RNA sequence: CCGUGCUAGAUGGGGAGGUAGCGGUGCCCUAUAACUCGCAAUCCGCUAUAGCGAGAUUGAAUUCCUGUCCUAGGUAUUGUCGAUGUAAGGCAGGUAUCUGAGCGCAGUGUUGACGGAUGGGUCCUUCGCAAGGAACACCUGUGAACCUGGUCAGGUCCGGAAGGAAGCAGCCAUAAGCAGUUUCGUUCUUGUGCCGAGGGAGUGCCUAUCCUGAGCUGUCGCUCAGAAGAACCGCUUGGAUCGCAAUUAUCGAAGACAGGUGCACGG
Numbered sequence: 001c002c003g004u005g006c007u008a009g010a011u012g013g014g015g016a017g018g019u020a021g022c023g024g025u026g027c028c029c030u031a032u033a034a035c036u037c038g039c040a041a042u043c044c045g046c047u048a049u050a051g052c053g054a055g056a057u058u059g060a061a062u063u064c065c066u067g068u069c070c071u072a073g074g075u076a077u078u079g080u081c082g083a084u085g086u087a088a089g090g091c092a093g094g095u096a097u098c099u100g101a102g103c104g105c106a107g108u109g110u111u112g113a114c115g116g117a118u119g120g121g122u123c124c125u126u127c128g129c130a131a132g133g134a135a136c137a138c139c140u141g142u143g144a145a146c147c148u149g150g151u152c153a154g155g156u157c158c159g160g161a162a163g164g165a166a167g168c169a170g171c172c173a174u175a176a177g178c179a180g181u182u183u184c185g186u187u188c189u190u191g192u193g194c195c196g197a198g199g200g201a202g203u204g205c206c207u208a209u210c211c212u213g214a215g216c217u218g219u220c221g222c223u224c225a226g227a228a229g230a231a232c233c234g235c236u237u238g239g240a241u242c243g244c245a246a247u248u249a250u251c252g253a254a255g256a257c258a259g260g261u262g263c264a265c266g267g
Stems, first nucleotide, its partner, number of pairs: 001267006009058003012030004017025001019023001035055005064260006073251004081243004086238004093233002097227005104222002106217003115211008123200006129191002132189005137182001139180004148173004156165003
RNA: Bacterial large signal recognition particle RNA